[Rfam]
Shown here is an 86-nucleotide RNA sequence from Solanum tuberosum, a member of the family "MIR8024 microRNA precursor family".
The family has 2 seed sequences and 661 matches in Rfam 15.1.
The family's consensus secondary structure was predicted with RNAalifold.
Nucleotides: 086
Stems, first nucleotide, its partner, number of pairs: 001084006009076006017068005025059004032053005
Number, partner (000 for none) and nucleotide at each position: 001084u002083u003082g004081g005080a006079g007000g008000a009076u010075u011074u012073a013072a014071a015000g016000a017068c018067u019066u020065c021064a022000a023000c024000u025059u026058g027057c028056a029000u030000a031000c032053u033052u034051g035050g036049a037000a038000g039000a040000u041000u042000u043000g044000a045000a046000g047000a048000c049036u050035u051034c052033a053032g054000c055000u056028u057027g058026c059025a060000u061000a062000c063000u064021u065020g066019g067018a068017g069000g070000a071014u072013u073012u074011g075010a076009a077000g078000a079006u080005u081004u082003c083002a084001a085000c086000u
NCBI's taxonomy places the organism under Eukaryota, Embryophyta, eudicotyledons, Solaneae, Solanum.